[Rfam]
RNA sequence: CUUAAUACAAAAGCGCCAGGACUAUUUCUAUGAACGGUUUUAAUAGAAAUAGUUGACGAGGAGAAGGUUUCAUCGAAAAAUCGGCGGGUGCCUUCCAGCUGUCAAUCAUCUCAGCUGAAAAAUUUUAGUUGAAAACAUAGAGGCGACUCUAUGCACAACCAGCUAAAACAAGAUGACCA
Number, nucleotide and partner (000 for none) at each position: 001c000002u000003u000004a000005a000006u000007a000008c000009a000010a000011a000012a000013g000014c000015g000016c000017c000018a000019g000020g054021a053022c052023u051024a050025u049026u048027u047028c000029u045030a044031u043032g000033a000034a000035c000036g000037g000038u000039u000040u000041u000042a000043a031044u030045a029046g000047a027048a026049a025050u024051a023052g022053u021054u020055g000056a000057c000058g000059a000060g000061g000062a000063g095064a094065a093066g092067g091068u000069u000070u000071c000072a000073u084074c083075g082076a081077a000078a000079a000080a000081u076082c075083g074084g073085c000086g000087g000088g000089u000090g000091c067092c066093u065094u064095c063096c117097a116098g115099c114100u113101g112102u000103c000104a000105a000106u000107c000108a000109u000110c000111u000112c101113a100114g099115c098116u097117g096118a000119a000120a000121a000122a000123u168124u167125u166126u165127a164128g163129u000130u000131g000132a000133a000134a000135a000136c153137a152138u151139a150140g149141a148142g147143g000144c000145g000146a000147c142148u141149c140150u139151a138152u137153g136154c000155a000156c000157a000158a000159c000160c000161a000162g000163c128164u127165a126166a125167a124168a123169c000170a000171a000172g000173a000174u000175g000176a000177c000178c000179a000
Notes:
Rfam assigns this 179-nucleotide RNA from Aquisalibacillus elongatus to the family "glmS glucosamine-6-phosphate activated ribozyme aptamer". Gene Ontology terms of the family: catalytic activity and regulation of gene expression. Rfam's curators write: This entry contains a glucosamine-6-phosphate activated ribozyme that is found in the mRNA for GlmS. GlmS is an enzyme that uses fructose-6-phosphate and glutamine to generate glucosamine-6-phosphate. Rfam classes the family as a riboswitch. The match comes from Rfam's covariance-model search (112 bits).